[Rfam]
RNA sequence: GGUACCUGUACACGUUGCGGUGCAACGAUCGUGAAGCA
Numbered sequence: 001g002g003u004a005c006c007u008g009u010a011c012a013c014g015u016u017g018c019g020g021u022g023c024a025a026c027g028a029u030c031g032u033g034a035a036g037c038a
Stems, first nucleotide, its partner, number of pairs: 005031001013027006

Background:
A member of the RNA family "Selenocysteine insertion sequence 4" from Vescimonas coprocola, 38 nucleotides long. The organism belongs to Vescimonas, within Bacteria. For this family Rfam cites "Molecular analysis of the grd operon coding for genes of the glycine reductase and of the thioredoxin system from Clostridium sticklandii" (Graentzdoerffer et al., Arch Microbiol, 2001). Rfam links the family to the GO term selenocysteine incorporation. The family's RNA type in Rfam is cis-regulatory element.